This 102-nucleotide sequence from Alkalicoccus halolimnae belongs to the Rfam family "TPP riboswitch aptamer (THI element)". The family has 115 seed sequences and 16,130 matches in Rfam 15.1. A search with the family's covariance model found it, with a score of 71 bits. Lineage of the source: Bacteria > Bacillati > Bacillota > Caryophanales > Alkalicoccus. Vitamin B(1) in its active form thiamin pyrophosphate (TPP) is an essential coenzyme that is synthesised by coupling of pyrimidine and thiazole moieties in bacteria. The base pairs follow the family's consensus structure, which is taken from published work.
[Rfam]
RNA sequence: GAAUUUCACUGGGGGUGCUGAAAAGCUGAGAGAGGCGGUAAGCCUUAACCCUUACGACCUGAUCCGGCUUAUACCGGCGGAGGGAAGUGGCUGCGACGUAUU
Numbered sequence: 001g002a003a004u005u006u007c008a009c010u011g012g013g014g015g016u017g018c019u020g021a022a023a024a025g026c027u028g029a030g031a032g033a034g035g036c037g038g039u040a041a042g043c044c045u046u047a048a049c050c051c052u053u054a055c056g057a058c059c060u061g062a063u064c065c066g067g068c069u070u071a072u073a074c075c076g077g078c079g080g081a082g083g084g085a086a087g088u089g090g091c092u093g094c095g096a097c098g099u100a101u102u
Stems, first nucleotide, its partner, number of pairs: 006090005011052004017026003033045004058083003064077004